[Rfam]
RNA: T-box leader
RNA sequence: GUAAAAGCUAUGACAGGAACCAGUAGCAGAACGUUUUUCCGAAAGAGAGUCGGUGGCUGGUGGAAACCGAUGGGAAGCUUCUGUGAAUCCAUCCUUGAGCGGGGUGUUGAAAGUCCGGACGAGUAGGCAUCCCCGGGAAUAAAAACCCGUUAUCCAUGCAAAGCGGAAAACAAAUGGUUUUGUUUUCAAAUUGGGUGGCAACGCGGGUCAACUCUCGUCCCUGUU
Number, nucleotide and partner (000 for none) at each position: 001g000002u000003a000004a000005a000006a000007g100008c099009u000010a000011u000012g000013a000014c000015a095016g094017g093018a092019a000020c000021c000022a000023g000024u000025a000026g084027c083028a082029g081030a080031a079032c000033g000034u000035u000036u000037u000038u074039c073040c072041g000042a000043a000044a000045g000046a000047g000048a000049g071050u070051c069052g068053g067054u066055g000056g000057c000058u000059g000060g000061u000062g000063g000064a000065a000066a054067c053068c052069g051070a050071u049072g040073g039074g038075a000076a000077g000078c000079u031080u030081c029082u028083g027084u026085g000086a000087a000088u000089c000090c000091a000092u018093c017094c016095u015096u000097g000098a000099g008100c007101g000102g132103g131104g130105u129106g128107u127108u126109g000110a000111a000112a000113g000114u000115c000116c000117g000118g000119a000120c000121g000122a000123g000124u000125a000126g108127g107128c106129a105130u104131c103132c102133c000134c149135g148136g147137g000138a000139a000140u000141a000142a000143a000144a000145a000146c000147c136148c135149g134150u000151u000152a000153u000154c000155c000156a000157u000158g000159c000160a000161a000162a000163g000164c000165g000166g187167a186168a185169a184170a183171c182172a181173a000174a000175u000176g000177g000178u000179u000180u000181u172182g171183u170184u169185u168186u167187c166188a000189a000190a000191u000192u000193g221194g220195g219196u000197g000198g000199c000200a000201a000202c000203g218204c217205g216206g215207g214208u000209c000210a000211a000212c000213u000214c207215u206216c205217g204218u203219c195220c194221c193222u000223g000224u000225u000